[Rfam]
RNA sequence: GUGUGAGGAUGGUGUUCAGCACCAAGGACAGGUGUGCUUACAUGUGUAGGGAUGGUGUUCAGCACCAAGGACAGGUGUGGUUACAU
Numbered sequence: 001g002u003g004u005g006a007g008g009a010u011g012g013u014g015u016u017c018a019g020c021a022c023c024a025a026g027g028a029c030a031g032g033u034g035u036g037c038u039u040a041c042a043u044g045u046g047u048a049g050g051g052a053u054g055g056u057g058u059u060c061a062g063c064a065c066c067a068a069g070g071a072c073a074g075g076u077g078u079g080g081u082u083a084c085a086u
Stems, first nucleotide, its partner, number of pairs: 001072002010067007018059007026047001028045003032041003
A member of the RNA family "mir-2060 microRNA precursor family" from Branchiostoma belcheri, 86 nucleotides long.
The organism belongs to Branchiostoma, within Eukaryota.
Gene Ontology terms of the family: RISC complex and miRNA-mediated post-transcriptional gene silencing.
Rfam 15.1 lists 3,696 matches to the family in 4 species.
Pairs were carried over by alignment from the consensus structure, which was predicted with RNAalifold.